[Rfam]
RNA sequence: GUUUGAUUGAUGACUUCAGUUGUCGGAUACCCCUUCACUCUUGUUCCGAGUGACACAUAACAAUCUGACAAAC
Numbered sequence: 001g002u003u004u005g006a007u008u009g010a011u012g013a014c015u016u017c018a019g020u021u022g023u024c025g026g027a028u029a030c031c032c033c034u035u036c037a038c039u040c041u042u043g044u045u046c047c048g049a050g051u052g053a054c055a056c057a058u059a060a061c062a063a064u065c066u067g068a069c070a071a072a073c
Stems, first nucleotide, its partner, number of pairs: 001073005
Dot-bracket structure: (((((...............................................................)))))
A member of the RNA family "Small nucleolar RNA SNORD101" from Otolemur garnettii, 73 nucleotides long. Lineage of the source: Eukaryota > Dipnotetrapodomorpha > Amniota > Euarchontoglires > Otolemur. A reference for the family is Vitali et al. (2003), "Identification of 13 novel human modification guide RNAs", Nucleic Acids Res. The family's RNA type in Rfam is C/D-box small nucleolar RNA.